A member of the RNA family "Small nucleolar RNA Z107/R87" from Dioscorea zingiberensis, 108 nucleotides long.
On this family, see Barneche et al., J Mol Biol 2001: "Identification of 66 box C/D snoRNAs in Arabidopsis thaliana: extensive gene duplications generated multiple isoforms predicting new ribosomal RNA 2'-O-methylation sites".
The organism belongs to Dioscorea, within Eukaryota.
Rfam 15.1 lists 783 matches to the family in 221 species.

[Rfam]
RNA sequence: GAUCGCUGUGACGACUUCGAAAAUUCAAGCUCAACAGACCGGAUUGCAGUUCUCUCUCUUUUGUAGAAAGAGCUUUGCAUGUCGAUCAACCCGCUGAACUGAGCGAUC
Numbered sequence: 001g002a003u004c005g006c007u008g009u010g011a012c013g014a015c016u017u018c019g020a021a022a023a024u025u026c027a028a029g030c031u032c033a034a035c036a037g038a039c040c041g042g043a044u045u046g047c048a049g050u051u052c053u054c055u056c057u058c059u060u061u062u063g064u065a066g067a068a069a070g071a072g073c074u075u076u077g078c079a080u081g082u083c084g085a086u087c088a089a090c091c092c093g094c095u096g097a098a099c100u101g102a103g104c105g106a107u108c
Base pairs, nucleotide, nucleotide: 001108002107003106004105005104006103